[Rfam]
RNA sequence: CAUAGUGUCCGGUAGGUAAGGCUACCACAGGGAUAUGGAUUGCUGCCGCAAAAUGAUGGAGACAUCAUGAGAGGGUUUGAACAGGCGAUAUCGAACACGAAGGUAUCAUCUAAUGCAAUUUCACCGCCUUGUGAGGCUAAAGCUUGAACGGUAGCGGGAAUGCAC
Numbered sequence: 001c002a003u004a005g006u007g008u009c010c011g012g013u014a015g016g017u018a019a020g021g022c023u024a025c026c027a028c029a030g031g032g033a034u035a036u037g038g039a040u041u042g043c044u045g046c047c048g049c050a051a052a053a054u055g056a057u058g059g060a061g062a063c064a065u066c067a068u069g070a071g072a073g074g075g076u077u078u079g080a081a082c083a084g085g086c087g088a089u090a091u092c093g094a095a096c097a098c099g100a101a102g103g104u105a106u107c108a109u110c111u112a113a114u115g116c117a118a119u120u121u122c123a124c125c126g127c128c129u130u131g132u133g134a135g136g137c138u139a140a141a142g143c144u145u146g147a148a149c150g151g152u153a154g155c156g157g158g159a160a161u162g163c164a165c
Base pairs, nucleotide, nucleotide: 005161006160008158009157010156011149013101015144016143017142020138021137022136026133027132028131029130030129031128032127039119040118041117042116043115045077046074047073049071055066056065057064058063084110085109087107090104091103092102
Dot-bracket structure: ....((.((((.[.(((..(((...(((((((......(((((.(((.(.....((((....))))....).))..)......((.(..(((........])))..).))....))))).......)))))))..)))...)))....)......))).))....
Rfam assigns this 165-nucleotide sequence from Oscillibacter sp. PC13 to the family "M-box riboswitch aptamer (ykoK leader)". It scores 90 bits against the family's covariance model. For this family Rfam cites "Insights into metalloregulation by M-box riboswitch RNAs via structural analysis of manganese-bound complexes" (Ramesh et al., J Mol Biol, 2011). Rfam 15.1 lists 1,095 matches to the family in 932 species. Taxonomically the source falls in Oscillibacter (Bacteria, Bacillati, Clostridia, Eubacteriales). Pairs were carried over by alignment from the consensus structure.